A member of the RNA family "atpB RNA", 127 nucleotides long. By type it is a cis-regulatory element.

Nucleotides: 127
Stems, first nucleotide, its partner, number of pairs: 003044007011036002070093010
Number, partner (000 for none) and nucleotide at each position: 001000a002000c003044u004043g005042g006041g007040c008039c009038g010000u011036u012035g013000c014000g015000a016000u017000g018000a019000u020000g021000u022000g023000c024000g025000a026000c027000g028000g029000a030000g031000u032000c033000c034000g035012u036011a037000u038009c039008g040007g041006c042005c043004c044003a045000u046000g047000a048000a049000g050000u051000u052000u053000u054000u055000c056000a057000g058000a059000c060000g061000u062000c063000c064000a065000u066000c067000g068000c069000a070093c071092c072091g073090c074089a075088c076087a077086g078085u079084g080000u081000g082000g083000u084079u085078a086077c087076u088075g089074u090073g091072c092071g093070g094000c095000c096000c097000g098000a099000a100000c101000a102000c103000g104000g105000g106000a107000g108000a109000g110000a111000a112000c113000g114000c115000u116000g117000a118000g119000c120000g121000u122000u123000a124000c125000a126000a127000c